[Rfam]
RNA sequence: CUGUACGAGCUAGUCAAUGCGAUUACUCCUAAAUUGGAAUAUCGGAAUACUGGUGAAGA
Numbered sequence: 001c002u003g004u005a006c007g008a009g010c011u012a013g014u015c016a017a018u019g020c021g022a023u024u025a026c027u028c029c030u031a032a033a034u035u036g037g038a039a040u041a042u043c044g045g046a047a048u049a050c051u052g053g054u055g056a057a058g059a
Base pairs, nucleotide, nucleotide: 009054010053011052012051013050014049020044021043022042023041027038028037029036
Shown here is a 59-nucleotide RNA sequence from Lactobacillus acidophilus, a member of the family "Transposase-1 RNA". Rfam classes the family as a small RNA. Taxonomically the source falls in Lactobacillus acidophilus (Bacteria, Bacillati, Bacilli, Lactobacillaceae).